[Rfam]
RNA sequence: CUUCAUUACAUCCUCGCGACUAAUGACAAUCCUCACCACCCUUGUGGAUAAGGCCUCUCAUUAGCCGCGCGAACCUCUGCAAUAAAGAUCACAUUUAUGAACAAUACAAUAGUUUCAACCGAAUUGCUUCGUUCGAUUGAAAAAAGGGGCCCUGAAAGGCCCCUUUUA
Numbered sequence: 001c002u003u004c005a006u007u008a009c010a011u012c013c014u015c016g017c018g019a020c021u022a023a024u025g026a027c028a029a030u031c032c033u034c035a036c037c038a039c040c041c042u043u044g045u046g047g048a049u050a051a052g053g054c055c056u057c058u059c060a061u062u063a064g065c066c067g068c069g070c071g072a073a074c075c076u077c078u079g080c081a082a083u084a085a086a087g088a089u090c091a092c093a094u095u096u097a098u099g100a101a102c103a104a105u106a107c108a109a110u111a112g113u114u115u116c117a118a119c120c121g122a123a124u125u126g127c128u129u130c131g132u133u134c135g136a137u138u139g140a141a142a143a144a145a146g147g148g149g150c151c152c153u154g155a156a157a158g159g160c161c162c163c164u165u166u167u168a
Stems, first nucleotide, its partner, number of pairs: 001087003005083001009079002015071004020064007094121001146163006

Shown here is a 168-nucleotide RNA sequence from Citrobacter sp. JGM124, a member of the family "SraG RNA".
On this family, see Fontaine et al., RNA 2016: "The small RNA SraG participates in PNPase homeostasis".
Pairs were carried over by alignment from the consensus structure, which was predicted with PFOLD.
It is annotated as a small RNA.